RNA: U1 spliceosomal RNA
Organism: Pogona vitticeps
RNA sequence: ACUCAUACCUGGCAGAGGAGAUACCGUUAUUGUAAAAGUGGUUUUCCCAGGGUAAGGCUCAUCUAUUAUACUCUGGAUGUGCUGACCCCUGUGAUUUCCCCAAAUGUGGGAAAAUCAACUGCCUAAGUGGGGGACUAUGUGGUUUCCCCUG
Numbered sequence: 001a002c003u004c005a006u007a008c009c010u011g012g013c014a015g016a017g018g019a020g021a022u023a024c025c026g027u028u029a030u031u032g033u034a035a036a037a038g039u040g041g042u043u044u045u046c047c048c049a050g051g052g053u054a055a056g057g058c059u060c061a062u063c064u065a066u067u068a069u070a071c072u073c074u075g076g077a078u079g080u081g082c083u084g085a086c087c088c089c090u091g092u093g094a095u096u097u098c099c100c101c102a103a104a105u106g107u108g109g110g111a112a113a114a115u116c117a118a119c120u121g122c123c124u125a126a127g128u129g130g131g132g133g134a135c136u137a138u139g140u141g142g143u144u145u146c147c148c149c150u151g
Stems, first nucleotide, its partner, number of pairs: 012122004017047005023042005049090004056083003060079005092117003095113003099109002129150006